[Rfam]
RNA sequence: CAAUACGUGAGGAAAAAAACUCACGGGGUGGAAACAAGGUCACACUCCCGCUGAGUUUUCGGAA
Numbered sequence: 001c002a003a004u005a006c007g008u009g010a011g012g013a014a015a016a017a018a019a020c021u022c023a024c025g026g027g028g029u030g031g032a033a034a035c036a037a038g039g040u041c042a043c044a045c046u047c048c049c050g051c052u053g054a055g056u057u058u059u060c061g062g063a064a
Stems, first nucleotide, its partner, number of pairs: 016059007025049003028045003